[Rfam]
Nucleotides: 137
Stems, first nucleotide, its partner, number of pairs: 002059005014053002016045003020041002022038001025035002062126001064124001066122003070117003078106005
Number, partner (000 for none) and nucleotide at each position: 001000a002059g003058c004057g005056u006055u007000a008000c009000a010000g011000u012000a013000c014053c015052u016045g017044u018043a019000c020041c021040c022038a023000g024000g025035a026034g027000c028000c029000u030000u031000c032000u033000c034026c035025u036000g037000g038022u039000g040021g041020g042000a043018u044017g045016u046000u047000c048000a049000a050000a051000a052015a053014g054000c055006a056005g057004u058003g059002c060000u061000a062126c063000u064124g065000c066122a067121g068120u069000g070117c071116a072115g073000c074000a075000u076000u077000u078106g079105g080104c081103a082102u083000c084000c085000u086000u087000g088000g089000u090000u091000u092000u093000c094000c095000u096000c097000c098000a099000g100000c101000u102082g103081u104080g105079u106078c107000u108000g109000u110000u111000a112000a113000a114000c115072c116071u117070g118000g119000u120068a121067u122066u123000u124064u125000u126062g127000c128000u129000g130000a131000a132000a133000c134000a135000g136000u137000c